[Rfam]
RNA sequence: CAACAUGCAUAUCAGGGAUUUGCUAAAGAUAAUUAUACUAUGCUGGAUAAUUUGAAACUGGGUGGACAUAACCGUUUAGCUCAGUAUAAACCUCGUGAAUUCAGGGAACCUCUAAGGGCAGUAGCCUAAGAUAAUCCUGAGCUAUAUCAAUAUUUUGAGUUUAUAGGUUGAUGUAGUGCAACGACUAUCGAAACAGAAAGGGCACCCAAAAGGGUGCUUUUUUAAUGGAGUAGAGUACACUCAAGUGAGUGGAAGUGCGAGGAUAUGAGAAAUCAUAUAAGAGAUAGUCUAAUCUAUAUAGAAAUAUAUAG
Number, nucleotide and partner (000 for none) at each position: 001c000002a000003a000004c000005a000006u000007g023008c022009a021010u000011a019012u018013c017014a000015g000016g000017g013018a012019u011020u000021u009022g008023c007024u000025a000026a000027a000028g000029a000030u000031a000032a000033u000034u000035a000036u000037a000038c000039u000040a000041u000042g000043c000044u000045g000046g000047a000048u000049a000050a000051u000052u000053u000054g000055a000056a000057a000058c000059u000060g000061g000062g000063u000064g000065g000066a000067c000068a000069u000070a000071a000072c000073c000074g000075u000076u000077u000078a000079g000080c000081u000082c000083a000084g000085u000086a000087u000088a000089a000090a000091c262092c261093u260094c259095g000096u257097g256098a000099a000100u000101u140102c139103a138104g137105g136106g135107a000108a000109c000110c000111u131112c130113u129114a000115a127116g000117g000118g000119c000120a000121g000122u000123a000124g000125c000126c000127u115128a000129a113130g112131a111132u000133a000134a000135u106136c105137c104138u103139g102140a101141g177142c176143u000144a000145u000146a172147u171148c170149a169150a000151u000152a000153u000154u165155u000156u163157g162158a000159g000160u000161u000162u157163a156164u000165a154166g000167g000168u000169u149170g148171a147172u146173g000174u000175a000176g142177u141178g000179c000180a000181a290182c000183g289184a288185c287186u286187a285188u000189c000190g000191a000192a000193a000194c000195a000196g000197a000198a000199a000200g000201g000202g000203c000204a000205c000206c000207c000208a000209a000210a000211a000212g000213g000214g000215u000216g000217c000218u000219u000220u000221u000222u000223u000224a000225a000226u000227g000228g000229a000230g000231u000232a000233g000234a000235g000236u000237a000238c000239a000240c000241u000242c000243a000244a000245g000246u000247g000248a000249g000250u000251g000252g000253a000254a000255g000256u097257g096258c000259g094260a093261g092262g091263a000264u000265a276266u275267g274268a273269g000270a000271a000272a000273u268274c267275a266276u265277a000278u000279a000280a000281g000282a000283g000284a000285u187286a186287g185288u184289c183290u181291a000292a000293u000294c000295u000296a309297u308298a307299u306300a305301g000302a000303a000304a000305u300306a299307u298308a297309u296310a000311g000
Rfam assigns this 311-nucleotide sequence from Facklamia sp. 252 to the family "Group I catalytic intron".
NCBI's taxonomy places the organism under Bacteria, Bacillati, Bacillota, Lactobacillales, Facklamia.
The base pairs follow the family's consensus structure, which is taken from published work.